Shown here is a 180-nucleotide RNA sequence from Salegentibacter flavus, a member of the family "Group II catalytic intron D1-D4-3". Rfam links the family to the GO term Group II intron splicing.

RNA sequence: CCAACUGUGAAGUUGGAACUGAAGGAAGCGGGUCUACAAACCCUGGUACUGACGAACAGGAACCGGAUUUGAGGCUACAAGGUUGGAUGAGCAAGCACAUCAUUGUGAUGUCCUAAACAUUUCUUCUGAAAUGAAUACCGAAGUAGUAGAUCCGGCAGGAAUCAGGGGAAAGAAGAUGUU
Dot-bracket structure: ((((((....))))))...........(..(.....(...(((((((.(((...........((((((.....(((.(...(.(((((..((((........))))...)))).......................).)...).)))..))))))))).).))))))....)....)..)
On this family, see Bonen and Vogel, Trends Genet 2001: "The ins and outs of group II introns".